Description
A member of the RNA family "Bacterial large signal recognition particle RNA" from Candidatus Epulonipiscioides gigas, 264 nucleotides long. Rfam describes the family as follows. The signal recognition particle (SRP) is a universally conserved ribonucleoprotein involved in the co-translational targeting of proteins to membranes.
[Rfam]
RNA sequence: CUGUGCUAGCUGGGGAGGUAGCGGUGCCCUGAACUUGCAACCCGCUAGAGCAAGAGUGAUGCUUUGUCUGCGGCCAUAUUUUGUUUGGUCUGCCCCUAGAAAGUGGUGUUGAGAAUUCAGUCUUACGCAAUAGACACUUAUGAACCGUGUCAGGUCUUGACGGAAGCAGCACUAAGUAAGGUAGUUUAUGUGCCGUAAGGGCGCUGUAUUUGAGCUAACUACUAGGGUAACGCUUGUGGAUUAUUGUCAAAGCAAAGUGCACAG
Numbered sequence: 001c002u003g004u005g006c007u008a009g010c011u012g013g014g015g016a017g018g019u020a021g022c023g024g025u026g027c028c029c030u031g032a033a034c035u036u037g038c039a040a041c042c043c044g045c046u047a048g049a050g051c052a053a054g055a056g057u058g059a060u061g062c063u064u065u066g067u068c069u070g071c072g073g074c075c076a077u078a079u080u081u082u083g084u085u086u087g088g089u090c091u092g093c094c095c096c097u098a099g100a101a102a103g104u105g106g107u108g109u110u111g112a113g114a115a116u117u118c119a120g121u122c123u124u125a126c127g128c129a130a131u132a133g134a135c136a137c138u139u140a141u142g143a144a145c146c147g148u149g150u151c152a153g154g155u156c157u158u159g160a161c162g163g164a165a166g167c168a169g170c171a172c173u174a175a176g177u178a179a180g181g182u183a184g185u186u187u188a189u190g191u192g193c194c195g196u197a198a199g200g201g202c203g204c205u206g207u208a209u210u211u212g213a214g215c216u217a218a219c220u221a222c223u224a225g226g227g228u229a230a231c232g233c234u235u236g237u238g239g240a241u242u243a244u245u246g247u248c249a250a251a252g253c254a255a256a257g258u259g260c261a262c263a264g
Base pairs, nucleotide, nucleotide: 001264002263003262004261005260006259009057010056011055012030013029014028015027017025019023034054035053036052037051038050062257063256064255065254066253068252069251072248073247074246076244078242080240081239082238083237084236087233091229092228095226096225097224098223099222103219104218105216106215107214113211114210115209116208118206119205120204121203122199123198124197125196126195127194128190129189131188132187133186134185135184137180138179139178140177141176147172148171149170150169155164156163157162

Rfam links the family to the GO terms signal recognition particle, plasma membrane targeting and SRP-dependent cotranslational protein targeting to membrane, signal sequence recognition.
The match comes from Rfam's covariance-model search (186 bits).